Rfam assigns this 98-nucleotide sequence from Castanea mollissima to the family "Small nucleolar RNA Z43".
[Rfam]
RNA sequence: GGACUAUGACGAUUUGUGAUUUAAGGUCUCGUUCGUCGUAAUUGGCCCAAUAGGCCUUGCCGACCAUCCUGAUAUAUCACCACCCAUAUUCUGAGUCC
Number, nucleotide and partner (000 for none) at each position: 001g098002g097003a096004c095005u000006a000007u000008g000009a000010c000011g000012a000013u000014u000015u000016g000017u000018g000019a000020u000021u000022u000023a000024a000025g000026g000027u000028c000029u000030c000031g000032u000033u000034c000035g000036u000037c000038g000039u000040a000041a000042u000043u000044g000045g000046c000047c000048c000049a058050a057051u000052a000053g000054g000055c000056c000057u050058u049059g000060c000061c000062g000063a000064c000065c000066a000067u000068c000069c000070u000071g000072a000073u000074a000075u000076a000077u000078c000079a000080c000081c000082a000083c000084c000085c000086a000087u000088a000089u000090u000091c000092u000093g000094a000095g004096u003097c002098c001
The source organism's lineage runs through Eukaryota, Euphyllophyta, Gunneridae, Fagaceae and Castanea. The family's consensus secondary structure was predicted with PFOLD. Its family is annotated with nucleolus and RNA processing in the Gene Ontology.